Rfam assigns this 120-nucleotide RNA to the family "c-di-GMP-II-GAG riboswitch aptamer". On this family, see Weinberg et al., Proc Natl Acad Sci U S A 2017: "Bioinformatic analysis of riboswitch structures uncovers variant classes with altered ligand specificity".

[Rfam]
Nucleotides: 120
Stems, first nucleotide, its partner, number of pairs: 001120001003118001005116001007114005013095003022089008038107002040103005
Number, partner (000 for none) and nucleotide at each position: 001120g002000g003118c004000c005116g006000a007114c008113c009112g010111g011110g012000a013095c014094g015093c016000a017000c018000a019000g020000a021000u022089c023088c024087u025086u026085g027084g028083a029082c030000c031000g032000c033000a034000c035000g036000a037000c038107g039106g040103u041102c042101g043100c044099c045000g046000c047000a048000c049000c050000a051000g052000c053000u054000c055000c056000g057000g058000c059000a060000g061000c062000a063000c064000c065000a066000c067000g068000c069000c070000g071000c072000g073000c074000u075000g076000g077000g078000a079000g080000a081000g082029g083028u084027c085026c086025g087024a088023g089022g090000g091000g092000a093015g094014c095013g096000a097000g098000u099044g100043g101042c102041g103040a104000g105000a106039c107038c108000g109000a110011c111010c112009c113008g114007g115000a116005c117000c118003g119000a120001c
The family's consensus secondary structure is taken from published work. Clan: c-di-GMP_II riboswitch clan.